[Rfam]
RNA: Streptomyces RNA 3202
Organism: Streptomyces sp. MMG1121
RNA sequence: CCACGUCCCGACGCACUAUCCCCCCCGGCGCCGGGACCUCCCAAGGCCGGGCUUCGGCACCCAUCCCCCCCGGGUGCCGGAGCCCGGCUCUCUC
Numbered sequence: 001c002c003a004c005g006u007c008c009c010g011a012c013g014c015a016c017u018a019u020c021c022c023c024c025c026c027g028g029c030g031c032c033g034g035g036a037c038c039u040c041c042c043a044a045g046g047c048c049g050g051g052c053u054u055c056g057g058c059a060c061c062c063a064u065c066c067c068c069c070c071c072g073g074g075u076g077c078c079g080g081a082g083c084c085c086g087g088c089u090c091u092c093u094c
Stems, first nucleotide, its partner, number of pairs: 005037006012030003045089009055079008